[Rfam]
RNA: U4atac minor spliceosomal RNA
RNA sequence: UCUUUCCUUGUCUGGGGGUGGAUUGGGCUGUUCAAUGAACGUGUAGUGAGAAUAGCUCUGCUGACACCUAACCAACACAAAACGCAUCACCUGAACUGCGGUGUUCAGGCUAUGGUGCAAUUUUUGGAACC
Numbered sequence: 001u002c003u004u005u006c007c008u009u010g011u012c013u014g015g016g017g018g019u020g021g022a023u024u025g026g027g028c029u030g031u032u033c034a035a036u037g038a039a040c041g042u043g044u045a046g047u048g049a050g051a052a053u054a055g056c057u058c059u060g061c062u063g064a065c066a067c068c069u070a071a072c073c074a075a076c077a078c079a080a081a082a083c084g085c086a087u088c089a090c091c092u093g094a095a096c097u098g099c100g101g102u103g104u105u106c107a108g109g110c111u112a113u114g115g116u117g118c119a120a121u122u123u124u125u126g127g128a129a130c131c
Base pairs, nucleotide, nucleotide: 006018007017008016009015021061023060025058027056028055029054030053031052032051033050039047040046084118085117086116087115088114089113090109091108092107093106094105095104